[Rfam]
RNA sequence: GAUAGGUCGCUGUCGCUACUGUGAUUGGACACUGACACAGAGUCAACUAGCCUGAGUCGCGCGGUUCUUCGCGCGAGAACCGAAGGGCGGUCCGAGCCACGAGGGGGGAGGCUCGGACCGCCCGGC
Numbered sequence: 001g002a003u004a005g006g007u008c009g010c011u012g013u014c015g016c017u018a019c020u021g022u023g024a025u026u027g028g029a030c031a032c033u034g035a036c037a038c039a040g041a042g043u044c045a046a047c048u049a050g051c052c053u054g055a056g057u058c059g060c061g062c063g064g065u066u067c068u069u070c071g072c073g074c075g076a077g078a079a080c081c082g083a084a085g086g087g088c089g090g091u092c093c094g095a096g097c098c099a100c101g102a103g104g105g106g107g108g109a110g111g112c113u114c115g116g117a118c119c120g121c122c123c124g125g126c
Base pairs, nucleotide, nucleotide: 001014002013003012004011005010015051016050017049018048021032022031023030033045034044035043036042058075059074060073061072062071063070064069086122087121088120089119090118091117092116093115094114095113096112097111098110100107